[Rfam]
RNA sequence: CCGGGGGGCCGGGCAGCCGCGUCCUUCGACAGGCUCAGCAUGAGCGGGUUGAAGGCCGAGGAAAGUCCGGGCUCCACGAAACAAGGGUGGCGGGUAACGCCCGCCGGCCCCCGGCAACGGGGGUCAGGGACAGUGCCACAGAGAGCAGACCGCCACACCCCGGCUCCGGCCGGGACGGCAAGGGUGAAAGGGUGCGGCAAGAGCGCACCGCGCGACCGGCAACGGAAGCGGCAAGGCAAACCCCACCCGGAGCAAGACCGAAUAGGGGCGGCGUGCUGGCAACAGCGGGUCUGUUUCGGACCUGAUCGCCCGGGUUGGUCGCUGGAGCGCCGCAGCAAUGCGUCGCCGAGAGGAAUGGCUGCCCCGGCCGAUACGGUCUCUCUUCAGGGAUACCGUCGGUCGGACAGAACCCGGCUUACAGGCUCCCCGGUGCA
Numbered sequence: 001c002c003g004g005g006g007g008g009c010c011g012g013g014c015a016g017c018c019g020c021g022u023c024c025u026u027c028g029a030c031a032g033g034c035u036c037a038g039c040a041u042g043a044g045c046g047g048g049u050u051g052a053a054g055g056c057c058g059a060g061g062a063a064a065g066u067c068c069g070g071g072c073u074c075c076a077c078g079a080a081a082c083a084a085g086g087g088u089g090g091c092g093g094g095u096a097a098c099g100c101c102c103g104c105c106g107g108c109c110c111c112c113g114g115c116a117a118c119g120g121g122g123g124u125c126a127g128g129g130a131c132a133g134u135g136c137c138a139c140a141g142a143g144a145g146c147a148g149a150c151c152g153c154c155a156c157a158c159c160c161c162g163g164c165u166c167c168g169g170c171c172g173g174g175a176c177g178g179c180a181a182g183g184g185u186g187a188a189a190g191g192g193u194g195c196g197g198c199a200a201g202a203g204c205g206c207a208c209c210g211c212g213c214g215a216c217c218g219g220c221a222a223c224g225g226a227a228g229c230g231g232c233a234a235g236g237c238a239a240a241c242c243c244c245a246c247c248c249g250g251a252g253c254a255a256g257a258c259c260g261a262a263u264a265g266g267g268g269c270g271g272c273g274u275g276c277u278g279g280c281a282a283c284a285g286c287g288g289g290u291c292u293g294u295u296u297c298g299g300a301c302c303u304g305a306u307c308g309c310c311c312g313g314g315u316u317g318g319u320c321g322c323u324g325g326a327g328c329g330c331c332g333c334a335g336c337a338a339u340g341c342g343u344c345g346c347c348g349a350g351a352g353g354a355a356u357g358g359c360u361g362c363c364c365c366g367g368c369c370g371a372u373a374c375g376g377u378c379u380c381u382c383u384u385c386a387g388g389g390a391u392a393c394c395g396u397c398g399g400u401c402g403g404a405c406a407g408a409a410c411c412c413g414g415c416u417u418a419c420a421g422g423c424u425c426c427c428c429g430g431u432g433c434a
Base pairs, nucleotide, nucleotide: 001430002429003428004427005426006425007424008423009422010421011419012363013362014361015360016359017358018357020058021057023055024054025053026052027051028050029049030048063417064416065415067414068413069412070411071410072252073251074250075249081296083294085248086247087246088245089244090104091103092102093101094100105127106125107124108123109122110121111120112119113118128243129242133241134240135237136236137235150183151182152179153178154177159174160173161172162171163170164169191209192208193207194206195205196204210232211230212229213228216225217224218223256320257319258318259317266311267310268309269308270307271306288302289301290300291299292298327346328345329344331342332341333340334339
The family of this 434-nucleotide RNA sequence from Novosphingobium piscinae is "Bacterial RNase P class A". The match comes from Rfam's covariance-model search (255 bits). Taxonomically the source falls in Novosphingobium (Bacteria, Pseudomonadati, Alphaproteobacteria, Sphingomonadaceae). It is annotated as a ribozyme. Ribonuclease P (RNase P) is a ubiquitous endoribonuclease, found in archaea, bacteria and eukarya as well as chloroplasts and mitochondria. Its best characterised activity is the generation of mature 5'-ends of tRNAs by cleaving the 5'-leader elements of precursor-tRNAs. Cellular RNase Ps are ribonucleoproteins.